RNA sequence: CCCUCCGAAGUUUCCCUCAGGAUAGCUGGCGCUCGGCUCGCAGUUUUAUCCGGUAAAGCGAAUGAUUAGAGGCAUUGGGGCCGAAACGAUCUCAACCUAUUCUCAAACUUUAAAUGGGUAAGAAGCCCGGCUCGCUGGCUUGGAGCCGGGCGUGGAAUGCGAGAGGCCUAGUGGGCCAUUUUUGGUAAGCAGAACUGGCGCUGCGGGAUGAACCGAACGCCGGGUUAAGGCGCCCGAUGCCGACGCUCAUCAGACCCCAUAAAAGGUGUUGGUUGAUAUAGACAGCAGGACGGUGGCCAUGGAAGUCGGAAUCCGCUAAGGAGUGUGUAACAACUCACCUGCCGAAUCAACUAGCCCUGAAAAUGGAUGGCGCUGGAGCGUCGGGCCCAUACCCGGCCGUCGCCGGCACAGGAGUAGCGAGGGCUAAGCCGCGACGAGUAGGAGGGCCGCCGCGGUGGCGCAGAAGCCUAGGGCGCGGGCCCGGGUGGAGCCGCCGCGGGUGCAGAU
Number, nucleotide and partner (000 for none) at each position: 001c446002c445003c444004u443005c442006c441007g000008a000009a000010g000011u024012u000013u022014c021015c020016c000017u000018c000019a000020g015021g014022a013023u000024a011025g000026c000027u000028g168029g167030c166031g000032c165033u164034c163035g000036g000037c000038u000039c000040g000041c000042a000043g000044u123045u122046u121047u120048a119049u118050c117051c116052g000053g000054u000055a000056a111057a109058g108059c000060g000061a000062a000063u105064g104065a103066u000067u000068a100069g000070a098071g097072g096073c000074a000075u095076u094077g093078g092079g091080g090081c000082c088083g000084a000085a000086a000087c000088g082089a000090u080091c079092u078093c077094a076095a075096c072097c071098u070099a000100u068101u000102c000103u065104c064105a063106a000107a000108c058109u057110u000111u056112a000113a000114a000115u000116g051117g050118g049119u048120a047121a046122g045123a044124a000125g151126c150127c149128c148129g147130g146131c145132u144133c143134g000135c000136u000137g000138g000139c000140u000141u000142g000143g133144a132145g131146c130147c129148g128149g127150g126151c125152g000153u000154g000155g000156a000157a000158u000159g000160c000161g000162a000163g034164a033165g032166g030167c029168c028169u000170a000171g000172u000173g000174g000175g199176c198177c197178a196179u000180u194181u193182u192183u191184g190185g000186u000187a000188a000189g000190c184191a183192g182193a181194a180195c000196u178197g177198g176199c175200g000201c000202u000203g000204c215205g214206g213207g000208a000209u000210g000211a000212a000213c206214c205215g204216a000217a000218c000219g397220c396221c395222g394223g393224g000225u391226u000227a000228a000229g387230g386231c385232g000233c000234c000235c000236g000237a000238u384239g000240c383241c000242g000243a000244c380245g379246c378247u000248c000249a000250u000251c000252a000253g000254a000255c000256c000257c000258c000259a000260u000261a000262a000263a000264a358265g357266g356267u000268g355269u354270u353271g352272g351273u350274u349275g348276a347277u346278a000279u000280a000281g000282a000283c000284a000285g342286c341287a340288g339289g338290a000291c315292g314293g313294u000295g000296g000297c309298c308299a000300u000301g000302g000303a000304a000305g000306u000307c000308g298309g297310a000311a000312u000313c293314c292315g291316c320317u000318a000319a000320g316321g336322a000323g000324u000325g334326u333327g000328u000329a000330a000331c000332a000333a326334c325335u000336c321337a000338c289339c288340u287341g286342c285343c000344g000345a000346a277347u276348c275349a274350a273351c272352u271353a270354g269355c268356c266357c265358u264359g000360a000361a000362a000363a000364u000365g000366g000367a000368u000369g000370g000371c000372g000373c000374u000375g000376g000377a000378g246379c245380g244381u000382c000383g240384g238385g231386c230387c229388c000389a000390u000391a225392c000393c223394c222395g221396g220397c219398c436399g435400u434401c433402g432403c431404c000405g430406g429407c428408a000409c000410a000411g000412g000413a000414g000415u000416a000417g000418c000419g000420a000421g000422g000423g000424c000425u000426a000427a000428g407429c406430c405431g403432c402433g401434a400435c399436g398437a000438g000439u000440a000441g006442g005443a004444g003445g002446g001447c000448c502449g000450c499451c498452g497453c496454g495455g494456u493457g492458g491459c490460g000461c000462a000463g000464a000465a000466g486467c485468c000469u000470a000471g000472g481473g480474c479475g000476c000477g000478g000479g474480c473481c472482c000483g000484g000485g467486u466487g000488g000489a000490g459491c458492c457493g456494c455495c454496g453497c452498g451499g450500g000501u000502g448503c000504a000505g000506a000507u000

A member of the RNA family "Eukaryotic large subunit ribosomal RNA" from Chanos chanos, 507 nucleotides of a longer RNA.
The source organism's lineage runs through Eukaryota, Gnathostomata, Euteleostomi, Chanoidei and Chanos.
It scores 2818 bits against the family's covariance model.
The base pairs follow the family's consensus structure, which is taken from published work.